[Rfam]
RNA sequence: CCUGGUAUGUUCCUACCAGUCUCUAUGUGGGCGUGCUUGCUACGCGCUGUGUAGUCGGUGCGAAGCCCCACAGACAAUGUACCGACGGUUCAAAUGGUAACAGGCGAACCAUUCGAUGAAUCCUAACUUCGAUAAGGGC
Numbered sequence: 001c002c003u004g005g006u007a008u009g010u011u012c013c014u015a016c017c018a019g020u021c022u023c024u025a026u027g028u029g030g031g032c033g034u035g036c037u038u039g040c041u042a043c044g045c046g047c048u049g050u051g052u053a054g055u056c057g058g059u060g061c062g063a064a065g066c067c068c069c070a071c072a073g074a075c076a077a078u079g080u081a082c083c084g085a086c087g088g089u090u091c092a093a094a095u096g097g098u099a100a101c102a103g104g105c106g107a108a109c110c111a112u113u114c115g116a117u118g119a120a121u122c123c124u125a126a127c128u129u130c131g132a133u134a135a136g137g138g139c
Base pairs, nucleotide, nucleotide: 002019003018004017005016006015007014027071028070029069030068031067032062033061034060035059036058037057039055040054041053042052043051088109089108090107091106095102096101113132114131115130116129118127
This 139-nucleotide RNA from Candidatus Magnetomorum sp. HK-1 belongs to the Rfam family "Group II catalytic intron D1-D4-7". The source organism's lineage runs through Bacteria, Pseudomonadati, Desulfobacterales, Candidatus Magnetomoraceae and Candidatus Magnetomorum.